[Rfam]
L31-Actinobacteria ribosomal protein leader: a 45-nucleotide sequence from Wenjunlia tyrosinilytica. Clan: Ribosomal Protein L31 Leader clan. A search with the family's covariance model found it, with a score of 46 bits.
RNA sequence: UCGGCCCCGGUUCACGCACGGCAACAGGCCGUGUGACCCGGUGCC
Numbered sequence: 001u002c003g004g005c006c007c008c009g010g011u012u013c014a015c016g017c018a019c020g021g022c023a024a025c026a027g028g029c030c031g032u033g034u035g036a037c038c039c040g041g042u043g044c045c
Base pairs, nucleotide, nucleotide: 003045004044005043007041008040009039010038015035016034017033018032019031020030021029022028